[Rfam]
RNA sequence: UGAGUCGGCCAGACGAUCGCUCUUCAGUUUUCUGUUGAGAGGAAAGUCCGGGCUCCGCAGGGCAAGGCGCCAGGUAACUCCUGGGAGGUGCGAGCCUACGGAAAGUGCAACAGAAAAUACACCGCCUAAGUAGCGCAAGUUACCGGUAAGGUUGAAAUGGUGCGGUAAGAGCGCACCGCGCGACUGGCAACAGCUCGUGGCAUGGUAAACCCCGCCUGGAGCAAGGCCAAAUAGGAAUCCAGCGCUGUGGCCCACAGUGGAUUCGGGUAGGCUGCUAGAGGCUUGCGGUGACGCAGGUCCCAGAUGAAUGGUCGUCCAAGACAGAACCCGGCUUAUCGGCCGACUCAAUUU
Numbered sequence: 001u002g003a004g005u006c007g008g009c010c011a012g013a014c015g016a017u018c019g020c021u022c023u024u025c026a027g028u029u030u031u032c033u034g035u036u037g038a039g040a041g042g043a044a045a046g047u048c049c050g051g052g053c054u055c056c057g058c059a060g061g062g063c064a065a066g067g068c069g070c071c072a073g074g075u076a077a078c079u080c081c082u083g084g085g086a087g088g089u090g091c092g093a094g095c096c097u098a099c100g101g102a103a104a105g106u107g108c109a110a111c112a113g114a115a116a117a118u119a120c121a122c123c124g125c126c127u128a129a130g131u132a133g134c135g136c137a138a139g140u141u142a143c144c145g146g147u148a149a150g151g152u153u154g155a156a157a158u159g160g161u162g163c164g165g166u167a168a169g170a171g172c173g174c175a176c177c178g179c180g181c182g183a184c185u186g187g188c189a190a191c192a193g194c195u196c197g198u199g200g201c202a203u204g205g206u207a208a209a210c211c212c213c214g215c216c217u218g219g220a221g222c223a224a225g226g227c228c229a230a231a232u233a234g235g236a237a238u239c240c241a242g243c244g245c246u247g248u249g250g251c252c253c254a255c256a257g258u259g260g261a262u263u264c265g266g267g268u269a270g271g272c273u274g275c276u277a278g279a280g281g282c283u284u285g286c287g288g289u290g291a292c293g294c295a296g297g298u299c300c301c302a303g304a305u306g307a308a309u310g311g312u313c314g315u316c317c318a319a320g321a322c323a324g325a326a327c328c329c330g331g332c333u334u335a336u337c338g339g340c341c342g343a344c345u346c347a348a349u350u351u
Stems, first nucleotide, its partner, number of pairs: 001347010011336001012316007020039003025034003044334003048331005053221004060253004065217005070084005085099001086097004100212002105210002107206002122151002124147003130143005159177006178201001179199005184193003225273004235264006244258005280299008
RNA: Bacterial RNase P class A